Shown here is an 81-nucleotide RNA from Kingdonia uniflora, a member of the family "mir-156 microRNA precursor family".
It scores 72 bits against the family's covariance model.
Pairs were carried over by alignment from the consensus structure, which was predicted with PFOLD.
Taxonomically the source falls in Kingdonia (Eukaryota, Streptophytina, Embryophyta, Circaeasteraceae).
This family represents the plant microRNA (miRNA) precursor mir-156.
[Rfam]
RNA sequence: CUGACAGAAGAGAGUGAGCACACACUAUGAAUUGUAUGAGUAUACCUUUUGUUGGUGCGUGCUCACUUCUCUCUCUGUCAG
Numbered sequence: 001c002u003g004a005c006a007g008a009a010g011a012g013a014g015u016g017a018g019c020a021c022a023c024a025c026u027a028u029g030a031a032u033u034g035u036a037u038g039a040g041u042a043u044a045c046c047u048u049u050u051g052u053u054g055g056u057g058c059g060u061g062c063u064c065a066c067u068u069c070u071c072u073c074u075c076u077g078u079c080a081g
Base pairs, nucleotide, nucleotide: 001081002080003079004078005077006076007075008074010071011070012069013067014066015065016064017063018062019061020060021059023057024056025055